[Rfam]
Nucleotides: 066
Base pairs, nucleotide, nucleotide: 002066003065004064005063006062
Number, partner (000 for none) and nucleotide at each position: 001000a002066g003065c004064a005063c006062a007000a008000a009000u010000g011000a012000u013000g014000a015000g016000u017000u018000u019000u020000g021000g022000g023000a024000c025000u026000u027000a028000a029000u030000a031000c032000u033000g034000a035000u036000c037000u038000g039000g040000u041000g042000a043000u044000g045000u046000c047000u048000c049000g050000c051000a052000u053000a054000a055000g056000a057000u058000c059000u060000g061000a062006u063005g064004u065003g066002u

The family of this 66-nucleotide RNA from Pantherophis guttatus is "Small nucleolar RNA SNORD82".
The family's RNA type in Rfam is C/D-box small nucleolar RNA.
Rfam links the family to the GO terms nucleolus and RNA processing.
The literature on the family includes a 2002 paper in Mol Cell Biol by Galardi et al., "Purified box C/D snoRNPs are able to reproduce site-specific 2'-O-methylation of target RNA in vitro".
The match comes from Rfam's covariance-model search (46 bits).
The organism belongs to Pantherophis, within Eukaryota.